[Rfam]
RNA: U4atac minor spliceosomal RNA
Organism: Phascolarctos cinereus
RNA sequence: ACCAUCCUCUUCUUGGGGUUGCGUUACUGCCCAAUGAACGUCUAGUGAGGACAGUACUGCUAAUGCCUAUACAACACACACGCAUCUCUUAAAGCUUUGUUUUAACAUGAUGCAAUUUUUGGAACC
Numbered sequence: 001a002c003c004a005u006c007c008u009c010u011u012c013u014u015g016g017g018g019u020u021g022c023g024u025u026a027c028u029g030c031c032c033a034a035u036g037a038a039c040g041u042c043u044a045g046u047g048a049g050g051a052c053a054g055u056a057c058u059g060c061u062a063a064u065g066c067c068u069a070u071a072c073a074a075c076a077c078a079c080a081c082g083c084a085u086c087u088c089u090u091a092a093a094g095c096u097u098u099g100u101u102u103u104a105a106c107a108u109g110a111u112g113c114a115a116u117u118u119u120u121g122g123a124a125c126c
Stems, first nucleotide, its partner, number of pairs: 006018004021060003026055004031050002038046002082113005090104006